A member of the RNA family "c-di-AMP riboswitch aptamer (ydaO/yuaA leader)" from Effusibacillus lacus, 128 nucleotides long. Taxonomically the source falls in Effusibacillus (Bacteria, Bacillati, Bacillota, Bacilli).

RNA sequence: UAUCGUAUUACGCUGAGUCGAAAGAGCGGGGGAACCACAUUUUUUGGGGUGAAUCGCAGAAACUGCGUAGGGCAACUCCACUGCCCGAAUCCGUCAGCUAACCCCGUAAGCGUAGCUGGAGAGGAGGA
Numbered sequence: 001u002a003u004c005g006u007a008u009u010a011c012g013c014u015g016a017g018u019c020g021a022a023a024g025a026g027c028g029g030g031g032g033a034a035c036c037a038c039a040u041u042u043u044u045u046g047g048g049g050u051g052a053a054u055c056g057c058a059g060a061a062a063c064u065g066c067g068u069a070g071g072g073c074a075a076c077u078c079c080a081c082u083g084c085c086c087g088a089a090u091c092c093g094u095c096a097g098c099u100a101a102c103c104c105c106g107u108a109a110g111c112g113u114a115g116c117u118g119g120a121g122a123g124g125a126g127g128a
Stems, first nucleotide, its partner, number of pairs: 011112004018025002026107006036046002047092003055067004070086004
Dot-bracket structure: ..........((((...((....))((((((....((.......))(((.....((((.....))))..((((.........))))...))).........)))))).))))................